This 100-nucleotide RNA sequence from Oryza punctata belongs to the Rfam family "Small nucleolar RNA snoR99". Pairs were carried over by alignment from the consensus structure, which was predicted with WAR. Rfam links the family to the GO terms RNA processing and nucleolus. NCBI's taxonomy places the organism under Eukaryota, Streptophytina, Oryzoideae, Oryzeae, Oryza. The family's RNA type in Rfam is H/ACA-box small nucleolar RNA.
Nucleotides: 100
Base pairs, nucleotide, nucleotide: 036093037092038091039090040089052081053080054079055078056077057076058075
Number, partner (000 for none) and nucleotide at each position: 001000g002000u003000g004000c005000c006000u007000g008000u009000g010000g011000g012000a013000u014000g015000a016000a017000c018000a019000g020000g021000u022000c023000c024000c025000a026000a027000u028000a029000u030000u031000u032000a033000u034000c035000a036093c037092c038091a039090u040089u041000u042000a043000g044000u045000u046000c047000a048000c049000u050000u051000u052081g053080u054079c055078a056077g057076c058075u059000u060000a061000u062000a063000g064000u065000c066000g067000u068000g069000u070000c071000u072000u073000u074000u075058a076057g077056u078055u079054g080053a081052u082000c083000a084000u085000u086000g087000a088000g089040a090039a091038u092037g093036g094000g095000a096000a097000a098000c099000a100000a